[Rfam]
RNA sequence: UCUUGCAGGCCUUUGCAACGGAUCGUCCGGCACGUUCCUGCCGGUGGAGGAGCACACU
Numbered sequence: 001u002c003u004u005g006c007a008g009g010c011c012u013u014u015g016c017a018a019c020g021g022a023u024c025g026u027c028c029g030g031c032a033c034g035u036u037c038c039u040g041c042c043g044g045u046g047g048a049g050g051a052g053c054a055c056a057c058u
Base pairs, nucleotide, nucleotide: 010050011049012048013047014046015045027044028043029042030041031040032039